Shown here is a 130-nucleotide RNA sequence from Streptomyces solincola, a member of the family "Streptomyces RNA 5676". A reference for the family is Vockenhuber et al. (2011), "Deep sequencing-based identification of small non-coding RNAs in Streptomyces coelicolor", RNA Biol. It scores 93 bits against the family's covariance model.
RNA sequence: GGAUGAGAGAGACACCCCGCCCGCAGGGGACUGCGGGCGACACCGGUGCGGAGCCUCCCCAGCCCCGUACCGGCCGCGCCCUGGCGCACACCGCUGGAGCCUCGCGCUCCGGAAGUCCUCUCCGGUCGGA
Numbered sequence: 001g002g003a004u005g006a007g008a009g010a011g012a013c014a015c016c017c018c019g020c021c022c023g024c025a026g027g028g029g030a031c032u033g034c035g036g037g038c039g040a041c042a043c044c045g046g047u048g049c050g051g052a053g054c055c056u057c058c059c060c061a062g063c064c065c066c067g068u069a070c071c072g073g074c075c076g077c078g079c080c081c082u083g084g085c086g087c088a089c090a091c092c093g094c095u096g097g098a099g100c101c102u103c104g105c106g107c108u109c110c111g112g113a114a115g116u117c118c119u120c121u122c123c124g125g126u127c128g129g130a
Base pairs, nucleotide, nucleotide: 005120006119007118009117010116018039019038020037021036022035023034024033025032026031043073044072045071046070047069049067050066051065053063054062076089078087079086094112095111096110097109098108099107100106122129123128
Pairs were carried over by alignment from the consensus structure.
Rfam's curators write: Identified by deep sequencing of transcriptome at the end of exponential growth phase. Appears longer on northern blot than sequencing transcript. This indicates processing step.
The organism belongs to Streptomyces, within Bacteria.